Overview:
This 115-nucleotide RNA sequence from Bacillus aquiflavi belongs to the Rfam family "RNA Staph. aureus E (RoxS)". A reference for the family is Geissmann et al. (2009), "A search for small noncoding RNAs in Staphylococcus aureus reveals a conserved sequence motif for regulation", Nucleic Acids Res. Rfam describes the family as follows. It was shown to be regulated by the presence of nitric oxide (NO). In Bacillus subtilis it controls expression of genes with functions related to oxidative stress and oxidation-reduction reactions and it was renamed RoxS (for related to oxidative stress).
RNA sequence: GUGAAGUUGAUCACAAACAAACAUAUACCCCUUUGUUUGACCGUGAAAAAUUUCUCCCAUCCCCUUUGUUCGUGUUAAAUGAGAAAAGCCCUUGCAGCAGUGCAAGGGCUUUUCU
Numbered sequence: 001g002u003g004a005a006g007u008u009g010a011u012c013a014c015a016a017a018c019a020a021a022c023a024u025a026u027a028c029c030c031c032u033u034u035g036u037u038u039g040a041c042c043g044u045g046a047a048a049a050a051u052u053u054c055u056c057c058c059a060u061c062c063c064c065u066u067u068g069u070u071c072g073u074g075u076u077a078a079a080u081g082a083g084a085a086a087a088g089c090c091c092u093u094g095c096a097g098c099a100g101u102g103c104a105a106g107g108g109c110u111u112u113u114c115u
Base pairs, nucleotide, nucleotide: 003054004053005052006051007050008049011046012045013044014043018039019038020037021036022035023034070081073079085112086111087110088109089108090107091106092105093104094103095102